Description
FMN riboswitch aptamer (RFN element): a 116-nucleotide RNA sequence from Fervidicella metallireducens. NCBI's taxonomy places the organism under Bacteria, Bacillati, Clostridiaceae, Fervidicella, Fervidicella metallireducens.
RNA sequence: UAUAAUCUUCAGGGCAGGGUGUAAUUCCCUACCGGCGGUAAAGCCCGCGAGCCGAAAGGCAUGAUCUGGUGAAAUUCCAGAGCCGACAGUUAUAGUCUGGAUGAGAGAAGAUGGAG
Number, nucleotide and partner (000 for none) at each position: 001u000002a000003u114004a000005a112006u111007c110008u109009u108010c107011a000012g000013g000014g000015c000016a000017g029018g028019g027020u000021g000022u000023a000024a000025u000026u000027c019028c018029c017030u000031a096032c095033c085034g084035g048036c047037g046038g045039u000040a000041a000042a000043g083044c082045c038046c037047g036048c035049g000050a000051g000052c000053c059054g000055a000056a000057a000058g000059g053060c000061a000062u000063g000064a000065u081066c080067u079068g078069g077070u000071g000072a000073a000074a000075u000076u000077c069078c068079a067080g066081a065082g044083c043084c034085g033086a000087c099088a098089g097090u000091u000092a000093u000094a000095g032096u031097c089098u088099g087100g000101a000102u000103g000104a000105g000106a000107g010108a009109a008110g007111a006112u005113g000114g003115a000116g000